The record is a 335-nucleotide RNA from Natranaeroarchaeum sulfidigenes, which matches "Archaeal RNase P" in Rfam. The family's RNA type in Rfam is ribozyme. Its family is annotated with multimeric ribonuclease P complex, ribonuclease P activity and tRNA processing in the Gene Ontology.
RNA sequence: GGUAGAGAGAGCCCGGCCUCCGCGUGCAGACGUGAGGAAAGUCCCCCCACCGUCCUGGUGGGUGACGGGGCGCAAGCCCCGGGCGGGAAACCGUCGGCUCUGGAACAGAAACGACACGUCUCGACCCGAUCGAUGAGGUGUGCGAACUCCGCGCGAUCGAAAGCGAGGAGGAGCUAACCCACCGAGAGACGACGGUCGAGGAUCGAUGGAACGGCGAAUCCCCACCGGUGCAAGUCGACGCCGUCGGCGCGAGAGCGCCGAGGGUAGCCAGGACAGGGGCGUCGACGCUCAGCCGAAUGCCGGGUCGAACAGAAGGGGGCUUACUCCUCUCUGCC
Dot-bracket structure: (((.(((((((((((((...(((((....)))))....[[[.[[[[[((((.........((((.(((((......)))))(((((....)))))((...(.(.............((.(((((((...........((.........................................))...........)))))))...)).........).)..)).))))))))...(((((((((...................................)))))))))............))))))..........]]]]]]]].)).))))).)))
It scores 172 bits against the family's covariance model. Rfam describes the family as follows. Ribonuclease P (RNase P) is a ubiquitous endoribonuclease, found in archaea, bacteria and eukarya as well as chloroplasts and mitochondria. Pairs were carried over by alignment from the consensus structure, which is taken from published work. For this family Rfam cites "Ribonuclease P: unity and diversity in a tRNA processing ribozyme" (Frank and Pace, Annu Rev Biochem, 1998).